Rfam assigns this 63-nucleotide RNA sequence from Anguilla anguilla to the family "mir-155 microRNA precursor family". The family has 25 seed sequences and 647 matches in Rfam 15.1. It scores 57 bits against the family's covariance model.

RNA sequence: GGGAUAAUGCUAAUUGUGAUAGGGGUUGAACUAUAAAAGACUCCUGCCCGUUAGCAUUAGCCC
Numbered sequence: 001g002g003g004a005u006a007a008u009g010c011u012a013a014u015u016g017u018g019a020u021a022g023g024g025g026u027u028g029a030a031c032u033a034u035a036a037a038a039g040a041c042u043c044c045u046g047c048c049c050g051u052u053a054g055c056a057u058u059a060g061c062c063c
Stems, first nucleotide, its partner, number of pairs: 005059010020046004025041003